[Rfam]
Rfam assigns this 99-nucleotide RNA from Turnera subulata to the family "Small nucleolar RNA Z157/R69/R10".
Rfam classes the family as a C/D-box small nucleolar RNA.
A reference for the family is Chen et al. (2003), "The high diversity of snoRNAs in plants: identification and comparative study of 120 snoRNA genes from Oryza sativa", Nucleic Acids Res.
NCBI's taxonomy places the organism under Eukaryota, Spermatophyta, eudicotyledons, fabids, Turnera.
Its family is annotated with RNA processing and nucleolus in the Gene Ontology.

RNA sequence: AAGAGUGCAGUGAUGAUACAACUUUGUGGACUAGAGUUUCUGAUCAGGGAUUUGUCUCUGAAGUUGAAGACUAACCCUUGGCUGUCUGAGCACAAACUU
Numbered sequence: 001a002a003g004a005g006u007g008c009a010g011u012g013a014u015g016a017u018a019c020a021a022c023u024u025u026g027u028g029g030a031c032u033a034g035a036g037u038u039u040c041u042g043a044u045c046a047g048g049g050a051u052u053u054g055u056c057u058c059u060g061a062a063g064u065u066g067a068a069g070a071c072u073a074a075c076c077c078u079u080g081g082c083u084g085u086c087u088g089a090g091c092a093c094a095a096a097c098u099u
Stems, first nucleotide, its partner, number of pairs: 001099003005093004037069004044062001045060005